The family of this 173-nucleotide RNA from Glycine max is "MIR4371 microRNA precursor family". The match comes from Rfam's covariance-model search (122 bits). The family has 4 seed sequences and 321 matches in Rfam 15.1. Gene Ontology terms of the family: miRNA-mediated post-transcriptional gene silencing and RISC complex.
RNA sequence: CCGUUAAGUGAUGACAUGACAAACGAAGUGUCCCGUCAUCAAACCUUGUCAUGGACACCUCAUUGUCACAUCAUCACCCUCAAUGAUAUCACCCUCAAUGAUGUGACACUGACAUGUCAGUGAUUAGGCAUGAUGACGUGACACUCUGUCUACCACAUCAUCACUUAACGAAA
Dot-bracket structure: .(((((((((((((..((..(.(((.((((((.((((((((..(((.(((((.((((............(((((.......................)))))............)))).))))).)))..)))))))).)))))).))).)..))..)))))))))))))...